[Rfam]
RNA: U4 spliceosomal RNA
RNA sequence: AGCCUUGCGCAGUGGCAAUACUGUAGCCGAUGAGGUUCUACCGAGGCGCAGUUAUUGCUAGUUGAAAACUAAUCCCAAUACCCCGCCUGGACGACGUGAAAUACCGUCGGCAAAGGCAAUUUCUGAUGGUCCUUUCUGAGGG
Numbered sequence: 001a002g003c004c005u006u007g008c009g010c011a012g013u014g015g016c017a018a019u020a021c022u023g024u025a026g027c028c029g030a031u032g033a034g035g036u037u038c039u040a041c042c043g044a045g046g047c048g049c050a051g052u053u054a055u056u057g058c059u060a061g062u063u064g065a066a067a068a069c070u071a072a073u074c075c076c077a078a079u080a081c082c083c084c085g086c087c088u089g090g091a092c093g094a095c096g097u098g099a100a101a102u103a104c105c106g107u108c109g110g111c112a113a114a115g116g117c118a119a120u121u122u123c124u125g126a127u128g129g130u131c132c133u134u135u136c137u138g139a140g141g142g
Base pairs, nucleotide, nucleotide: 020052021051022050023049024048026047027046028045034042035041036040085117086116087115088113090111092109093108094107095106096105130142131141132140133139